RNA sequence: GACAAAAGCAGUAACUGGCGAAAACUGUGGAACCAACCACAAGGGAGCUGCUUUUCUUACGCUUAAUAGCCGUUCGCCUGGGCUGAGGCU
Number, nucleotide and partner (000 for none) at each position: 001g000002a000003c000004a055005a054006a053007a052008g051009c050010a049011g048012u047013a000014a000015c044016u043017g078018g077019c076020g075021a074022a000023a000024a000025c000026u000027g040028u039029g038030g037031a000032a000033c000034c000035a000036a000037c030038c029039a028040c027041a000042a000043g016044g015045g000046a000047g012048c011049u010050g009051c008052u007053u006054u005055u004056c000057u000058u000059a000060c000061g000062c000063u000064u000065a000066a000067u085068a084069g083070c082071c081072g000073u000074u021075c020076g019077c018078c017079u000080g000081g071082g070083c069084u068085g067086a000087g000088g000089c000090u000
Annotation: Shown here is a 90-nucleotide sequence from Bacillus sp. SG-1, a member of the family "ZMP/ZTP riboswitch aptamer (pfl RNA motif)". The source organism's lineage runs through Bacteria, Bacilli, Caryophanales, Bacillaceae and Bacillus. The sequence is in the family's curated seed alignment.